[Rfam]
RNA sequence: GGGGUCACUAUGAGGAAAUAAAUAAACCAAAGAUGUCUGAGGGUGCAAUUCCCAUGAUUUUAUUAAAUAGUCCUUUUCAUUCUGAGUGCCCC
Numbered sequence: 001g002g003g004g005u006c007a008c009u010a011u012g013a014g015g016a017a018a019u020a021a022a023u024a025a026a027c028c029a030a031a032g033a034u035g036u037c038u039g040a041g042g043g044u045g046c047a048a049u050u051c052c053c054a055u056g057a058u059u060u061u062a063u064u065a066a067a068u069a070g071u072c073c074u075u076u077u078c079a080u081u082c083u084g085a086g087u088g089c090c091c092c
Base pairs, nucleotide, nucleotide: 004090006088007087008086010080011079012078013077014076042051043050
Shown here is a 92-nucleotide RNA sequence from Carex littledalei, a member of the family "Small nucleolar RNA Z162". The literature on the family includes a 2003 paper in Nucleic Acids Res by Chen et al., "The high diversity of snoRNAs in plants: identification and comparative study of 120 snoRNA genes from Oryza sativa". NCBI's taxonomy places the organism under Eukaryota, Streptophyta, Liliopsida, Cariceae, Carex subgen. Euthyceras. The family has 9 seed sequences and 146 matches in Rfam 15.1.